[Rfam]
RNA: Ribosomal S15 leader
Organism: Arsukibacterium sp. MJ3
RNA sequence: GGGGUCUGCUGGAUGAGUGAUCGGCGAUACCCUUAUUUUAGUUCACUCAAACUUGGAGUUAAAUAUGUCGUUAAAUGCUGCUGAUAAAGCAAAAAUUGUUGCUGACUACGCUGUAAAAGAA
Numbered sequence: 001g002g003g004g005u006c007u008g009c010u011g012g013a014u015g016a017g018u019g020a021u022c023g024g025c026g027a028u029a030c031c032c033u034u035a036u037u038u039u040a041g042u043u044c045a046c047u048c049a050a051a052c053u054u055g056g057a058g059u060u061a062a063a064u065a066u067g068u069c070g071u072u073a074a075a076u077g078c079u080g081c082u083g084a085u086a087a088a089g090c091a092a093a094a095a096u097u098g099u100u101g102c103u104g105a106c107u108a109c110g111c112u113g114u115a116a117a118a119g120a121a
Stems, first nucleotide, its partner, number of pairs: 007026006053074004058069001